[Rfam]
RNA sequence: UAAUACAUCUUGAAAAGCAGAGUAACUAUUAUGAUUACUGAUAAAGAGAGCUGGGAUUUUGGUGAGACUCAGCCAGUUAGUAGUGGUGAACAUGGGCUCGAAAUGAUGACCGUUAGUGAUAUUUAGCUACCGGCGGAGUUGCAUCCGUUAGCAUUGCAAGCUAUUGAUUGAUAGCUAGUGAGAGAUUUAUUACGUGAGUAAUAAAUAAUUUAAAGGUGGUAACGCGAAGCACUCGUCCUUAUG
Dot-bracket structure: ......((.......(((......((((((.......(((.........((((((............))))))))).....))))))........)))....))......((.((((........)))).)).(((........))).....................................(((((((........)))))))......((((.......((((.....))))))))...